[Rfam]
RNA: Bacterial RNase P class A
Nucleotides: 376
Base pairs, nucleotide, nucleotide: 001372002371003370004369005368006367007366008365009364010363011361012331013330014329015328016327017326018325020039021038022037023036024035025034026033027032044359045358046357048356049355050354051353052352053217054216055215056214062264066213067212068211069210070209071085072084073083074082075081086100087098088097089096090095101208102207106206107205108202109201110200123148124147125144126143127142128141129140130139131138132137156174157173158172159171160170161169175197176195177194178193181190182189183188221288222287223286224285231279232278233277234276235275236274257269258268259267260266295314296313297312298311299310300309301308302307
Number, partner (000 for none) and nucleotide at each position: 001372u002371c003370a004369g005368a006367c007366g008365g009364c010363c011361g012331g013330g014329c015328g016327g017326u018325c019000g020039c021038g022037g023036c024035g025034g026033g027032g028000c029000u030000u031000g032027c033026u034025c035024c036023g037022u038021c039020g040000a041000g042000g043000a044359a045358a046357g047000u048356c049355c050354g051353g052352g053217c054216u055215c056214c057000a058000c059000g060000g061000u062264g063000a064000a065000a066213a067212g068211g069210c070209g071085g072084c073083g074082g075081g076000u077000a078000a079000c080000g081075c082074c083073c084072g085071c086100c087098c088097g089096g090095g091000g092000u093000g094000a095090c096089c097088c098087g099000a100086g101208g102207g103000a104000u105000a106206g107205c108202g109201c110200c111000a112000c113000a114000g115000a116000a117000a118000g119000c120000a121000a122000a123148c124147c125144u126143c127142c128141u129140c130139c131138c132137u133000u134000g135000c136000g137132a138131g139130g140129g141128g142127g143126g144125g145000a146000a147124g148123g149000g150000u151000g152000a153000a154000a155000g156174g157173g158172u159171g160170g161169g162000g163000u164000a165000a166000g167000a168000g169161c170160c171159c172158a173157c174156c175197g176195c177194g178193g179000g180000a181190c182189u183188g184000g185000c186000a187000a188183c189182a190181g191000g192000a193178c194177c195176g196000g197175c198000a199000u200110g201109g202108c203000a204000a205107g206106c207102c208101c209070c210069g211068c212067c213066u214056g215055g216054a217053g218000c219000a220000a221288g222287a223286c224285c225000g226000a227000a228000u229000a230000g231279g232278g233277a234276u235275g236274u237000c238000g239000c240000g241000u242000g243000a244000g245000c246000c247000u248000c249000g250000g251000c252000u253000c254000a255000c256000a257269g258268g259267g260266c261000u262000c263000a264062c265000c266260g267259c268258c269257c270000g271000a272000g273000a274236g275235c276234a277233u278232c279231c280000g281000g282000g283000u284000a285224g286223g287222u288221c289000g290000c291000g292000a293000g294000a295314a296313c297312c298311g299310g300309u301308c302307a303000g304000c305000a306000a307302u308301g309300g310299c311298c312297g313296g314295u315000c316000c317000a318000g319000a320000g321000g322000a323000a324000u325018g326017a327016u328015c329014g330013u331012c332000a333000c334000c335000c336000g337000c338000u339000u340000g341000c342000g343000g344000g345000a346000a347000c348000a349000g350000a351000a352052c353051c354050c355049g356048g357046c358045u359044u360000a361011c362000a363010g364009g365008c366007c367006g368005u369004c370003u371002g372001a373000c374000c375000u376000u